[Rfam]
RNA sequence: CAAAUAAACUGUUAGGUGAGACUCCUACGUGAACAUAUGCUGUCGCCCAGCAACAUCCAGAGAUGCCAACGGGUCAAACAGGGAUCGUCGAUAUAAGGCCCUCCCCAGCCAGCUAGUUAUGUUAAAUAACCUUACGUCACGUAGUGUUAAAACUGAACGACGAGUAUAAAAA
Number, nucleotide and partner (000 for none) at each position: 001c000002a000003a000004a000005u168006a167007a000008a165009c164010u163011g158012u157013u096014a000015g154016g153017u152018g000019a000020g148021a147022c146023u000024c000025c144026u143027a142028c141029g140030u139031g138032a137033a000034c000035a000036u000037a000038u000039g113040c112041u111042g110043u000044c000045g074046c073047c072048c071049a000050g000051c000052a000053a000054c065055a064056u063057c062058c000059a000060g000061a000062g057063a056064u055065g054066c000067c000068a000069a000070c000071g048072g047073g046074u045075c000076a000077a000078a000079c000080a000081g105082g104083g103084a102085u000086c000087g099088u098089c097090g000091a000092u000093a000094u000095a000096a013097g089098g088099c087100c000101c000102u084103c083104c082105c081106c000107a000108g000109c000110c042111a041112g040113c039114u000115a132116g131117u000118u000119a000120u000121g000122u000123u000124a000125a000126a000127u000128a000129a000130c000131c116132u115133u000134a000135c000136g000137u032138c031139a030140c029141g028142u027143a026144g025145u000146g022147u021148u020149a000150a000151a000152a017153c016154u015155g000156a000157a012158c011159g000160a000161c000162g000163a010164g009165u008166a000167u006168a005169a000170a000171a000172a000